The family of this 487-nucleotide RNA from Callorhinus ursinus is "FGF-2 internal ribosome entry site (IRES)". From the family's description: This family represents the fibroblast growth factor 2 (FGF-2) internal ribosome entry site (IRES). The literature on the family includes a 2000 paper in J Cell Biol by Creancier et al., "Fibroblast growth factor 2 internal ribosome entry site (IRES) activity ex vivo and in transgenic mice reveals a stringent tissue-specific regulation". The family's consensus secondary structure was predicted with PFOLD. Gene Ontology term of the family: ribosome binding. The organism belongs to Callorhinus, within Eukaryota.
[Rfam]
RNA sequence: CUGCGGCCACAACUCCCGACCCAGAGGCCGGCCCCAGAAAGCCCCGAGCGAGUAGGGGGCGGUGCGCAGGAAGGGAGGAGGGCCGGGGGCGUGGGGGGGUGUGGGUGUUCGGGGGUGGAGAUGUAGAAGAUGUGACGCCGCGGCCCGGCGGGUGCCAGACCAGCGGACGCGGUGCCCGCGGUUGCUGCCGGAUCCCAGCUAGGGCAGGCGGCCCUCUCGAGAGCGGCGGCCGCGGAGACACCCGGCCCUAAACCCCAGCUCCCGAGCCCCCCGGCGCACCGCGCACUCGGGCAGCCGGAGAGGGGAGCGGCCGAGCGGCUCGAGGCUGGGGGCCCGUGGGCGCGGCCGCGCGCUGCCGGGCGGGAGGCUGGGGGGCCGGGGCCGUGGCCGUGCCCCGGACCGGGUCAGGGGCCGGGGCCGGGGGGCGGCGGCUCCCCGCGCAGCUCCAGGGGCGCGGGCACCCCGGCAGAGCCCCGGUGGGGCCAUG
Numbered sequence: 001c002u003g004c005g006g007c008c009a010c011a012a013c014u015c016c017c018g019a020c021c022c023a024g025a026g027g028c029c030g031g032c033c034c035c036a037g038a039a040a041g042c043c044c045c046g047a048g049c050g051a052g053u054a055g056g057g058g059g060c061g062g063u064g065c066g067c068a069g070g071a072a073g074g075g076a077g078g079a080g081g082g083c084c085g086g087g088g089g090c091g092u093g094g095g096g097g098g099g100u101g102u103g104g105g106u107g108u109u110c111g112g113g114g115g116u117g118g119a120g121a122u123g124u125a126g127a128a129g130a131u132g133u134g135a136c137g138c139c140g141c142g143g144c145c146c147g148g149c150g151g152g153u154g155c156c157a158g159a160c161c162a163g164c165g166g167a168c169g170c171g172g173u174g175c176c177c178g179c180g181g182u183u184g185c186u187g188c189c190g191g192a193u194c195c196c197a198g199c200u201a202g203g204g205c206a207g208g209c210g211g212c213c214c215u216c217u218c219g220a221g222a223g224c225g226g227c228g229g230c231c232g233c234g235g236a237g238a239c240a241c242c243c244g245g246c247c248c249u250a251a252a253c254c255c256c257a258g259c260u261c262c263c264g265a266g267c268c269c270c271c272c273g274g275c276g277c278a279c280c281g282c283g284c285a286c287u288c289g290g291g292c293a294g295c296c297g298g299a300g301a302g303g304g305g306a307g308c309g310g311c312c313g314a315g316c317g318g319c320u321c322g323a324g325g326c327u328g329g330g331g332g333c334c335c336g337u338g339g340g341c342g343c344g345g346c347c348g349c350g351c352g353c354u355g356c357c358g359g360g361c362g363g364g365a366g367g368c369u370g371g372g373g374g375g376c377c378g379g380g381g382c383c384g385u386g387g388c389c390g391u392g393c394c395c396c397g398g399a400c401c402g403g404g405u406c407a408g409g410g411g412c413c414g415g416g417g418c419c420g421g422g423g424g425g426c427g428g429c430g431g432c433u434c435c436c437c438g439c440g441c442a443g444c445u446c447c448a449g450g451g452g453c454g455c456g457g458g459c460a461c462c463c464c465g466g467c468a469g470a471g472c473c474c475c476g477g478u479g480g481g482g483c484c485a486u487g
Stems, first nucleotide, its partner, number of pairs: 029378007044363003058357010083258001085256004091249001093247001102244006144191002148179009196232001198230003203218002206215003263322006271298005394404004414475005421467001438455004456464003